[Rfam]
RNA sequence: UUUUUAUCUUGGAAAAACAAGGUAAAGCCUAAUUUGAGAACUUAAUGUAGCGAACAAAUAUAAGUGGGGGAAUCAACGUUUAUGUUUGCUUUUAGCUACGCUCAAUGUAGCGAUUGCAGUUUCUGCAAUCAUUCUUUUUAACCCAACUAAAAGUAGUGCAAACAAUAUGA
Numbered sequence: 001u002u003u004u005u006a007u008c009u010u011g012g013a014a015a016a017a018c019a020a021g022g023u024a025a026a027g028c029c030u031a032a033u034u035u036g037a038g039a040a041c042u043u044a045a046u047g048u049a050g051c052g053a054a055c056a057a058a059u060a061u062a063a064g065u066g067g068g069g070g071a072a073u074c075a076a077c078g079u080u081u082a083u084g085u086u087u088g089c090u091u092u093u094a095g096c097u098a099c100g101c102u103c104a105a106u107g108u109a110g111c112g113a114u115u116g117c118a119g120u121u122u123c124u125g126c127a128a129u130c131a132u133u134c135u136u137u138u139u140a141a142c143c144c145a146a147c148u149a150a151a152a153g154u155a156g157u158g159c160a161a162a163c164a165a166u167a168u169g170a
Base pairs, nucleotide, nucleotide: 002027003026004025005024006023007022008021009020010019011018034105035104036103037102038101046100047099048098049097050096051095053090055088056087057086058085059084060083061082062081063080064079065078066077067074068073110159111158112130113129114128115127116126117125118124119123134153135152136151137150138149
Dot-bracket structure: .((((((((((......))))))))))......(((((.......((((((.(.((((((((((((((....))..)))))))))))).)....)))))))))))....((((((((((...))))))))...(((((..........)))))....))...........

The record is a 170-nucleotide RNA sequence from Glaesserella parasuis, which matches "nqrA-II ncRNA motif" in Rfam. The literature on the family includes a 2024 paper in Nucleic Acids Res by Narunsky et al., "The discovery of novel noncoding RNAs in 50 bacterial genomes". The family's consensus secondary structure is taken from published work.